[Rfam]
RNA sequence: UUGUGGAAGAAGGAGCUACCCGCUUCUCACCUGUUUGACGCAUAAAGCAGUUGUCAGGUUUACGUGAACAUAUGACGCACAUAAGUGCGGUUUAAUGCGGGUGAGUUUGACUUCACCGGCAUUUUUUUUAUGGA
Numbered sequence: 001u002u003g004u005g006g007a008a009g010a011a012g013g014a015g016c017u018a019c020c021c022g023c024u025u026c027u028c029a030c031c032u033g034u035u036u037g038a039c040g041c042a043u044a045a046a047g048c049a050g051u052u053g054u055c056a057g058g059u060u061u062a063c064g065u066g067a068a069c070a071u072a073u074g075a076c077g078c079a080c081a082u083a084a085g086u087g088c089g090g091u092u093u094a095a096u097g098c099g100g101g102u103g104a105g106u107u108u109g110a111c112u113u114c115a116c117c118g119g120c121a122u123u124u125u126u127u128u129u130a131u132g133g134a
Stems, first nucleotide, its partner, number of pairs: 011027006029059003037052003040048002096121003100117006

Ribosomal protein L20 leader: a 134-nucleotide RNA from Bacillus coahuilensis. A reference for the family is Zengel and Lindahl (1994), "Diverse mechanisms for regulating ribosomal protein synthesis in Escherichia coli", Prog Nucleic Acid Res Mol Biol. By type it is a cis-regulatory leader. From the family's description: This family is a putative r-protein leader autoregulatory structure found in B. subtilis and other low-GC Gram-positive bacteria. It is located in the 5' untranslated regions of mRNAs encoding initiation factor 3 followed by ribosomal proteins L35 and L20 (infC-rpmI-rplT). A Rho-independent transcription terminator structure that is probably involved in regulation is included at the 3' end. The match comes from Rfam's covariance-model search (71 bits). The organism belongs to Bacillus coahuilensis, within Bacteria.